[Rfam]
RNA sequence: CCGCCAGCCCGGGCCCCUCUGGCAGUCAGAUGGACUGCGAUGUCGGACUGGAUGU
Numbered sequence: 001c002c003g004c005c006a007g008c009c010c011g012g013g014c015c016c017c018u019c020u021g022g023c024a025g026u027c028a029g030a031u032g033g034a035c036u037g038c039g040a041u042g043u044c045g046g047a048c049u050g051g052a053u054g055u
Stems, first nucleotide, its partner, number of pairs: 006049002009046004022038006

Notes:
The family of this 55-nucleotide RNA from Pseudochelatococcus contaminans is "terC RNA". Taxonomically the source falls in Pseudochelatococcus (Bacteria, Pseudomonadati, Pseudomonadota, Hyphomicrobiales). Rfam 15.1 lists 1,112 matches to the family in 772 species.